[Rfam]
RNase MRP: a 219-nucleotide sequence from Portunus trituberculatus. Rfam describes the family as follows. RNase MRP is an enzymatically active ribonucleoprotein with two distinct roles in eukaryotes. NCBI's taxonomy places the organism under Eukaryota, Metazoa, Bilateria, Stomatocarida, Portunus. The family has 66 seed sequences and 3,510 matches in Rfam 15.1. On this family, see Schmitt et al., FASEB J 1993: "Secondary structure of RNase MRP RNA as predicted by phylogenetic comparison".
RNA sequence: GUUUCAGUGGACGUUCCGCUUCCGGGGCGCUAGGCGUCCUGGGGAAACUCUCCAGACCACAGGGCAGAAAGUGCCGGGUUAUAGUGCCUCAGCCAUCCCCAAUGCCGCUUCCUGACGAGGAGGCUUCGGCCGAGUCUGUGGCGGGCGUGGCUAAUGUCAUAGUCAAGUAAUGUGGAAGCCAUUUGAUGGUAACUGAAUGGGGGUUACGUUCCACCGAUC
Numbered sequence: 001g002u003u004u005c006a007g008u009g010g011a012c013g014u015u016c017c018g019c020u021u022c023c024g025g026g027g028c029g030c031u032a033g034g035c036g037u038c039c040u041g042g043g044g045a046a047a048c049u050c051u052c053c054a055g056a057c058c059a060c061a062g063g064g065c066a067g068a069a070a071g072u073g074c075c076g077g078g079u080u081a082u083a084g085u086g087c088c089u090c091a092g093c094c095a096u097c098c099c100c101a102a103u104g105c106c107g108c109u110u111c112c113u114g115a116c117g118a119g120g121a122g123g124c125u126u127c128g129g130c131c132g133a134g135u136c137u138g139u140g141g142c143g144g145g146c147g148u149g150g151c152u153a154a155u156g157u158c159a160u161a162g163u164c165a166a167g168u169a170a171u172g173u174g175g176a177a178g179c180c181a182u183u184u185g186a187u188g189g190u191a192a193c194u195g196a197a198u199g200g201g202g203g204u205u206a207c208g209u210u211c212c213a214c215c216g217a218u219c
Stems, first nucleotide, its partner, number of pairs: 004217002007214005014177006022042009046205003050202004063075004076090003080086002092151005098145003105140001114136003123130002179189004